A member of the RNA family "msiK RNA" from Nesterenkonia xinjiangensis, 60 nucleotides long. The match comes from Rfam's covariance-model search (62 bits). Rfam 15.1 lists 1,374 matches to the family in 1,364 species. The family's consensus secondary structure is taken from published work. By type it is a cis-regulatory element. The organism belongs to Nesterenkonia, within Bacteria.
RNA sequence: CACAAGCUCCCAUUCACCACGGAUCGUCGGGCACGUACCUGCCCGUGAAAGGGAAAUACA
Numbered sequence: 001c002a003c004a005a006g007c008u009c010c011c012a013u014u015c016a017c018c019a020c021g022g023a024u025c026g027u028c029g030g031g032c033a034c035g036u037a038c039c040u041g042c043c044c045g046u047g048a049a050a051g052g053g054a055a056a057u058a059c060a
Stems, first nucleotide, its partner, number of pairs: 010052002013049004028045006